Shown here is a 367-nucleotide sequence from Lactococcus fujiensis, a member of the family "Bacterial RNase P class B". Taxonomically the source falls in Lactococcus fujiensis (Bacteria, Lactobacillales, Streptococcaceae, Lactococcus). Ribonuclease P (RNase P) is a ubiquitous endoribonuclease, found in archaea, bacteria and eukarya as well as chloroplasts and mitochondria. Its best characterised activity is the generation of mature 5'-ends of tRNAs by cleaving the 5'-leader elements of precursor-tRNAs. Cellular RNase Ps are ribonucleoproteins. RNA from bacterial RNase Ps retains its catalytic activity in the absence of the protein subunit, i.e. it is a ribozyme. Isolated eukaryotic and archaeal RNase P RNA has not been shown to retain its catalytic function, but is still essential for the catalytic activity of the holoenzyme. Although the archaeal and eukaryotic holoenzyme s have a much greater protein content than the bacterial ones, the RNA cores from all the three lineages are homologous -- helices corresponding to P1, P2, P3, P4, and P10/11 are common to all cellular RNase P RNAs. Yet, there is considerable sequence variation, particularly among the eukaryotic RNAs. Rfam links the family to the GO terms tRNA processing, dimeric ribonuclease P complex and ribonuclease P activity. Pairs were carried over by alignment from the consensus structure, which is taken from published work.

[Rfam]
RNA sequence: GUUUUCGGAUAACUGCGCGAUUAUAACUUUAUGUUUUUUCGUGAGGAAAGUCCAGGCUCGUGCGAUGCUGAGAUGCUCGCAGUGAUUGUGUCAGGCGAACAAAUAAGCCUGAGUAGGAGCGUCACUCCUAACGGCGGAGAUGAAGGCUAAGGUUUUACUAUGCCUAAAUUUCUGUAAAGUGCCAAAGAGACGAUGUCGCAGGGAAACUUGCGAAGUGGAACGUGGUAAACCCCUCAAACGAGCAACCCAAACAUAUGGUAGGGGCAUUCAGCUAGCCGAAUUGAAGGUGUGGCAGAGAUUGUGAAAACAAUAGACAGAUGGUUAUCGAAUGUAGUCUAACUACAGGAACAAAACUUGGCUUAUAGAA
Numbered sequence: 001g002u003u004u005u006c007g008g009a010u011a012a013c014u015g016c017g018c019g020a021u022u023a024u025a026a027c028u029u030u031a032u033g034u035u036u037u038u039u040c041g042u043g044a045g046g047a048a049a050g051u052c053c054a055g056g057c058u059c060g061u062g063c064g065a066u067g068c069u070g071a072g073a074u075g076c077u078c079g080c081a082g083u084g085a086u087u088g089u090g091u092c093a094g095g096c097g098a099a100c101a102a103a104u105a106a107g108c109c110u111g112a113g114u115a116g117g118a119g120c121g122u123c124a125c126u127c128c129u130a131a132c133g134g135c136g137g138a139g140a141u142g143a144a145g146g147c148u149a150a151g152g153u154u155u156u157a158c159u160a161u162g163c164c165u166a167a168a169u170u171u172c173u174g175u176a177a178a179g180u181g182c183c184a185a186a187g188a189g190a191c192g193a194u195g196u197c198g199c200a201g202g203g204a205a206a207c208u209u210g211c212g213a214a215g216u217g218g219a220a221c222g223u224g225g226u227a228a229a230c231c232c233c234u235c236a237a238a239c240g241a242g243c244a245a246c247c248c249a250a251a252c253a254u255a256u257g258g259u260a261g262g263g264g265c266a267u268u269c270a271g272c273u274a275g276c277c278g279a280a281u282u283g284a285a286g287g288u289g290u291g292g293c294a295g296a297g298a299u300u301g302u303g304a305a306a307a308c309a310a311u312a313g314a315c316a317g318a319u320g321g322u323u324a325u326c327g328a329a330u331g332u333a334g335u336c337u338a339a340c341u342a343c344a345g346g347a348a349c350a351a352a353a354c355u356u357g358g359c360u361u362a363u364a365g366a367a
Base pairs, nucleotide, nucleotide: 004367005366006365007363008326009325010324011323012322013321014320016043017042018041019040020039048361049360050359052358053357054356055355056354057242058241059240060239061238062080063079064078065077067076068075086237087236088235090233091112092111093110094109095108096107113132114130115129116128117127118126119125133232134231136173137172138171139170144165145164146163147162151159152158153157179230180229181226182225183224196213197212198211199210200209201208202207246263247262248261267297268296269295271293272292273291298311299310300309301308302307330344331343332342333341334340